Shown here is a 160-nucleotide RNA from Streptomyces xanthii, a member of the family "Streptomyces sRNA scr5239". The base pairs follow the family's consensus structure, which is taken from published work. The literature on the family includes a 2015 paper in PLoS One by Vockenhuber et al., "Identification of metE as a second target of the sRNA scr5239 in Streptomyces coelicolor". It scores 111 bits against the family's covariance model. The source organism's lineage runs through Bacteria, Bacillati, Actinomycetes, Kitasatosporales and Streptomyces. Rfam links the family to the GO terms negative regulation of translation and mRNA binding.
RNA sequence: CUUCCGCCCUCCCCGCACAGGAGGACGGACAGAGGAACCGUCGCUCUCUGCCCUGACUGCGACGGAUCCUCGAUCGGCACCCGGGACCGCACACCCGGAAGCCGGUGCACCUGAAGGGCUGCGGUGCCAGGGAACGGGUUGAGGGUCCCGCCCCCGGCGC
Numbered sequence: 001c002u003u004c005c006g007c008c009c010u011c012c013c014c015g016c017a018c019a020g021g022a023g024g025a026c027g028g029a030c031a032g033a034g035g036a037a038c039c040g041u042c043g044c045u046c047u048c049u050g051c052c053c054u055g056a057c058u059g060c061g062a063c064g065g066a067u068c069c070u071c072g073a074u075c076g077g078c079a080c081c082c083g084g085g086a087c088c089g090c091a092c093a094c095c096c097g098g099a100a101g102c103c104g105g106u107g108c109a110c111c112u113g114a115a116g117g118g119c120u121g122c123g124g125u126g127c128c129a130g131g132g133a134a135c136g137g138g139u140u141g142a143g144g145g146u147c148c149c150g151c152c153c154c155c156g157g158c159g160c
Stems, first nucleotide, its partner, number of pairs: 003029004008024005032071005038065004043060002045056002074105005083096003108126004116120001130154003135150004